[Rfam]
RNA sequence: GGAAGGCAUACGCACCCGGUGGUGCGCCCGGGCUUCAAACCCGGUAGGGGGCGUCAGUCGCUUCCUGGUAGGUUCGACUCCUGCUGCUUUCC
Numbered sequence: 001g002g003a004a005g006g007c008a009u010a011c012g013c014a015c016c017c018g019g020u021g022g023u024g025c026g027c028c029c030g031g032g033c034u035u036c037a038a039a040c041c042c043g044g045u046a047g048g049g050g051g052c053g054u055c056a057g058u059c060g061c062u063u064c065c066u067g068g069u070a071g072g073u074u075c076g077a078c079u080c081c082u083g084c085u086g087c088u089u090u091c092c
Stems, first nucleotide, its partner, number of pairs: 001092008011026006028044005047065005069083004